[Rfam]
RNA sequence: AUUGGACCGACUUCUGUUGGUGAGAGAGACAAGCUUUCGAUCUUGUUUCUCUCACCAACAGAAGUUGGUCCAAU
Numbered sequence: 001a002u003u004g005g006a007c008c009g010a011c012u013u014c015u016g017u018u019g020g021u022g023a024g025a026g027a028g029a030c031a032a033g034c035u036u037u038c039g040a041u042c043u044u045g046u047u048u049c050u051c052u053c054a055c056c057a058a059c060a061g062a063a064g065u066u067g068g069u070c071c072a073a074u
Stems, first nucleotide, its partner, number of pairs: 001074004005069001007068009017058006026051004
mir-29 microRNA precursor family: a 74-nucleotide RNA from Terrapene triunguis.
The literature on the family includes a 2001 paper in Cell by Ambros, "microRNAs: tiny regulators with great potential".
Taxonomically the source falls in Terrapene (Eukaryota, Sauropsida, Testudines, Emydidae).
It scores 48 bits against the family's covariance model.
About the family: This family represents the microRNA (miRNA) precursors mir-29.